[Rfam]
RNA sequence: GACUUAUCAAGAAAGGUGGAGGGAUUUGGCCCUACGAAACCUUAGCAACCCCCGCGUGACGGAAGGGUGCUAAUUCCAAUUCCGAGCAAUCGGAAGAGAUAAGCG
Number, nucleotide and partner (000 for none) at each position: 001g000002a000003c103004u102005u101006a100007u099008c098009a000010a000011g000012a000013a043014a042015g041016g040017u039018g000019g000020a000021g032022g031023g030024a000025u000026u079027u078028g077029g076030c023031c022032c021033u000034a000035c000036g000037a000038a000039a017040c016041c015042u014043u013044a071045g070046c069047a068048a000049c067050c066051c000052c062053c061054g060055c000056g000057u000058g000059a000060c054061g053062g052063a000064a000065g000066g050067g049068u047069g046070c045071u044072a000073a000074u000075u097076c029077c028078a027079a026080u000081u094082c093083c092084g091085a090086g000087c000088a000089a000090u085091c084092g083093g082094a081095a000096g000097a075098g008099a007100u006101a005102a004103g003104c000105g000
RNA: SAM riboswitch aptamer (S box leader)